RNA sequence: GCUGCUCUAACGGGGUGCCUGCGGUCCGUUUCCGACCGAUGGCUGAGAGGCUUCGAGCCAACCCGCGGAACCUGAUCCGGUUCAUACCGGCGGAGGGAUUAGAAGCGAUCGGACC
Dot-bracket structure: .....(((((((((..(((.....................)))........(....)....)))).....(((...((((......))))...)))..)))))............
Rfam assigns this 115-nucleotide RNA from Sinorhizobium saheli to the family "TPP riboswitch aptamer (THI element)". A search with the family's covariance model found it, with a score of 65 bits. The family's consensus secondary structure is taken from published work. The organism belongs to Sinorhizobium, within Bacteria.